[Rfam]
RNA: Small nucleolar RNA SNORA23
Organism: Fukomys damarensis
RNA sequence: GCUGUAAUGUGUGCAUAGUUUCCGUCUGUGUCUGUUAGCAGUGUCUGUCUGUGUUUUGCAUUCAGAUCUUGCUAUCCACACAAACAUCAGGCAGCUGGAGAGUAACCAGGGAUCAUAGUACUGGUCUAGUGUCCUUUUGGACACAUCUGCCACUGGCCAGCCUCCAAAUUCCCGCACACAG
Numbered sequence: 001g002c003u004g005u006a007a008u009g010u011g012u013g014c015a016u017a018g019u020u021u022c023c024g025u026c027u028g029u030g031u032c033u034g035u036u037a038g039c040a041g042u043g044u045c046u047g048u049c050u051g052u053g054u055u056u057u058g059c060a061u062u063c064a065g066a067u068c069u070u071g072c073u074a075u076c077c078a079c080a081c082a083a084a085c086a087u088c089a090g091g092c093a094g095c096u097g098g099a100g101a102g103u104a105a106c107c108a109g110g111g112a113u114c115a116u117a118g119u120a121c122u123g124g125u126c127u128a129g130u131g132u133c134c135u136u137u138u139g140g141a142c143a144c145a146u147c148u149g150c151c152a153c154u155g156g157c158c159a160g161c162c163u164c165c166a167a168a169u170u171c172c173c174g175c176a177c178a179c180a181g
Stems, first nucleotide, its partner, number of pairs: 013092002016089001029082003033078002036074006043067005050060003109173004121160006128154004134140001